[Rfam]
The record is a 58-nucleotide sequence from Camelus dromedarius, which matches "Ma3 gene ribosomal frameshift signal" in Rfam. NCBI's taxonomy places the organism under Eukaryota, Opisthokonta, Chordata, Dipnotetrapodomorpha, Camelus. The base pairs follow the family's consensus structure, which is taken from published work. On this family, see Wills et al., J Biol Chem 2006: "A functional -1 ribosomal frameshift signal in the human paraneoplastic Ma3 gene".
RNA sequence: GGGAAACGGGACAGGGCUGGGGCUAUGAGCCAUCCCGAGCCCUAGGAAGCUUAGGUCA
Dot-bracket structure: ............((((((.(((....[[.[[..))).))))))..........]]]].